[Rfam]
RNA: mir-2796 microRNA precursor family
Organism: Bicyclus anynana
RNA sequence: UGUCGUAGGCAGGGGUUUCUUUCGGCCUUCAGCUGUUUGGUAGCCUGUAGGCCGGCGGAAACUACUUGCUGAUGGCA
Numbered sequence: 001u002g003u004c005g006u007a008g009g010c011a012g013g014g015g016u017u018u019c020u021u022u023c024g025g026c027c028u029u030c031a032g033c034u035g036u037u038u039g040g041u042a043g044c045c046u047g048u049a050g051g052c053c054g055g056c057g058g059a060a061a062c063u064a065c066u067u068g069c070u071g072a073u074g075g076c077a
Base pairs, nucleotide, nucleotide: 005073006072008070010068011067012066013065014063015062016061017060018059019058020057022055023054024053025052026051027050028049030047031046032045